The record is a 66-nucleotide RNA from Bacteroides graminisolvens, which matches "Bacteroidetes FopS (family of paralogous sRNAs)" in Rfam. Rfam 15.1 lists 822 matches to the family in 178 species. Rfam links the family to the GO term sRNA-mediated gene silencing. Rfam describes the family as follows. The RNA-binding protein RbpB and BTncRNA_FopS sRNA are involved in the post-transcription regulation of polysaccharide utilisation loci (PUL). FopS sRNAs function as post-transcriptional repressors by binding to the vicinity of the start codon of the first mRNA of target PUL polycistrons, typically corresponding to the cognate SusC homolog, impeding translation of the respective glycan transporter. The family's RNA type in Rfam is small RNA. Lineage of the source: Bacteria > Pseudomonadati > Bacteroidota > Bacteroidia > Bacteroides graminisolvens.
Nucleotides: 066
Base pairs, nucleotide, nucleotide: 040056041055042054043052044051045050
Number, partner (000 for none) and nucleotide at each position: 001000g002000u003000g004000u005000u006000u007000u008000u009000c010000a011000u012000a013000g014000u015000a016000u017000u018000a019000g020000a021000u022000u023000u024000a025000a026000g027000g028000u029000u030000a031000a032000c033000a034000a035000a036000g037000g038000u039000u040056g041055g042054a043052u044051c045050a046000g047000g048000c049000g050045u051044g052043a053000c054042u055041c056040c057000u058000u059000u060000u061000u062000u063000u064000u065000g066000c